The family of this 84-nucleotide RNA sequence from Lentilactobacillus parafarraginis is "SAM-III riboswitch aptamer (SMK box)". Gene Ontology terms of the family: methionine adenosyltransferase activity and regulation of translational initiation.
RNA sequence: UGAAGUUAUGAGUUCCCGAUAGGAUUCACGUGUAUCGUGAAGAAGCCUUGUAACCUAAAAAAUCUAUAGGGGGAAAAUAAAAUG
Numbered sequence: 001u002g003a004a005g006u007u008a009u010g011a012g013u014u015c016c017c018g019a020u021a022g023g024a025u026u027c028a029c030g031u032g033u034a035u036c037g038u039g040a041a042g043a044a045g046c047c048u049u050g051u052a053a054c055c056u057a058a059a060a061a062a063u064c065u066a067u068a069g070g071g072g073g074a075a076a077a078u079a080a081a082a083u084g
Base pairs, nucleotide, nucleotide: 013075014074015073016072017071021048022047023046025041026040027039028038029037054070055069
Dot-bracket structure: ............(((((...(((.(((((.......)))))....))).....((.............))))))).........
The literature on the family includes a 2008 paper in Biochem Cell Biol by Wang and Breaker, "Riboswitches that sense S-adenosylmethionine and S-adenosylhomocysteine".